[Rfam]
RNA: Group II catalytic intron D1-D4-5
Organism: Halalkalibacter okhensis
RNA sequence: CCUAACUUUACAAGGGAGAAUAGGAAUGACGGAGCCACGUUUCCAGAAACUAUUCCAUCAACACUCCUGCGUGCGUUAUAACUAACAGGUUAUAGGGUUCGAAGCACAGGUAGAUUCGGUUGAAUGAAGGCUAAAGCCAUCAAAACAGAAGGGUAUGCUAACAGAUAGACCGCAUGGCUGAAAA
Numbered sequence: 001c002c003u004a005a006c007u008u009u010a011c012a013a014g015g016g017a018g019a020a021u022a023g024g025a026a027u028g029a030c031g032g033a034g035c036c037a038c039g040u041u042u043c044c045a046g047a048a049a050c051u052a053u054u055c056c057a058u059c060a061a062c063a064c065u066c067c068u069g070c071g072u073g074c075g076u077u078a079u080a081a082c083u084a085a086c087a088g089g090u091u092a093u094a095g096g097g098u099u100c101g102a103a104g105c106a107c108a109g110g111u112a113g114a115u116u117c118g119g120u121u122g123a124a125u126g127a128a129g130g131c132u133a134a135a136g137c138c139a140u141c142a143a144a145a146c147a148g149a150a151g152g153g154u155a156u157g158c159u160a161a162c163a164g165a166u167a168g169a170c171c172g173c174a175u176g177g178c179u180g181a182a183a184a
Stems, first nucleotide, its partner, number of pairs: 018055006031043004056176003066110004070101002073098002076095008117172005125163002129159002146157002149154001